[Rfam]
RNA: SAM riboswitch aptamer (S box leader)
Organism: Ruminococcus sp. CAG:254
RNA sequence: ACCUUAUCGAGAGUGGCGGAGGAACAGGUCCUGUGAAGCCCGGCAACCUAAUUGCAGCAAUGUGAAAAAGGUGCCAAUUCCUGCGGUUUAAGUACCGAGAGAUGAGGA
Number, nucleotide and partner (000 for none) at each position: 001a000002c107003c106004u105005u104006a103007u102008c101009g000010a000011g000012a000013g041014u000015g040016g039017c038018g000019g000020a000021g031022g030023a029024a000025c083026a082027g081028g080029u023030c022031c021032u000033g000034u000035g000036a000037a000038g017039c016040c015041c013042g075043g074044c073045a072046a000047c071048c070049u067050a000051a000052u064053u000054g000055c000056a000057g000058c000059a000060a000061u000062g000063u000064g052065a000066a000067a049068a000069a000070g048071g047072u045073g044074c043075c042076a000077a000078u000079u100080c028081c027082u026083g025084c097085g096086g095087u094088u000089u000090a000091a000092g000093u000094a087095c086096c085097g084098a000099g000100a079101g008102a007103u006104g005105a004106g003107g002108a000